[Rfam]
Nucleotides: 074
Stems, first nucleotide, its partner, number of pairs: 001074003005070003010067001011064009021054008
Number, partner (000 for none) and nucleotide at each position: 001074a002073a003072u004000a005070g006069c007068c008000u009000u010067u011064a012063g013062c014061g015060c016059g017058a018057c019056u020000a021054a022053u023052u024051g025050u026049u027048g028047g029000u030000g031000u032000a033000u034000u035000a036000a037000u038000u039000a040000u041000u042000a043000u044000a045000c046000a047028c048027c049026a050025g051024c052023a053022a054021u055000u056019a057018g058017u059016c060015g061014c062013g063012c064011u065000a066000a067010a068007g069006g070005c071000u072003a073002u074001u